Small nucleolar RNA SNORA22: a 132-nucleotide sequence from Rhynochetos jubatus. By type it is an H/ACA-box small nucleolar RNA. Its family is annotated with RNA processing and nucleolus in the Gene Ontology. From the family's description: ACA22 is a member of the H/ACA class of snoRNA that guide the sites of modification of uridines to pseudouridines. A search with the family's covariance model found it, with a score of 115 bits.

[Rfam]
RNA sequence: AGGCACAGCGAACACCCAAGUGUGCUUUGUAGUUCCCUUGGUUUCAGUUCUGUGCUAGAGCAAUCUGUACUUUUCCUCUGCAUUGAAAGGGGUUGCAUUCCUUUGAUAUGUAUUCAGAAGGACAGUACAUCU
Numbered sequence: 001a002g003g004c005a006c007a008g009c010g011a012a013c014a015c016c017c018a019a020g021u022g023u024g025c026u027u028u029g030u031a032g033u034u035c036c037c038u039u040g041g042u043u044u045c046a047g048u049u050c051u052g053u054g055c056u057a058g059a060g061c062a063a064u065c066u067g068u069a070c071u072u073u074u075c076c077u078c079u080g081c082a083u084u085g086a087a088a089g090g091g092g093u094u095g096c097a098u099u100c101c102u103u104u105g106a107u108a109u110g111u112a113u114u115c116a117g118a119a120g121g122a123c124a125g126u127a128c129a130u131c132u
Stems, first nucleotide, its partner, number of pairs: 003055006010049001016041005022035001024033003057071002060068003077118004081110003086104006